[Rfam]
RNA sequence: GGUCACGAGAACCAGCGCGAAGCCCCGGCUCGCUGGUCAGCAACCCUCCGCCACGGCGGGGUGCUCCGGGUGAGGACCAGGUGGACGCCCCACGACGGCGCGUCCGCAAGCGUGGCCC
Numbered sequence: 001g002g003u004c005a006c007g008a009g010a011a012c013c014a015g016c017g018c019g020a021a022g023c024c025c026c027g028g029c030u031c032g033c034u035g036g037u038c039a040g041c042a043a044c045c046c047u048c049c050g051c052c053a054c055g056g057c058g059g060g061g062u063g064c065u066c067c068g069g070g071u072g073a074g075g076a077c078c079a080g081g082u083g084g085a086c087g088c089c090c091c092a093c094g095a096c097g098g099c100g101c102g103u104c105c106g107c108a109a110g111c112g113u114g115g116c117c118c
Stems, first nucleotide, its partner, number of pairs: 001078004009038001011037006021030002039065003044061003048056002081107008090098001
RNA: SAM (S-adenosyl methionine) riboswitch aptamer
Organism: Pseudokineococcus lusitanus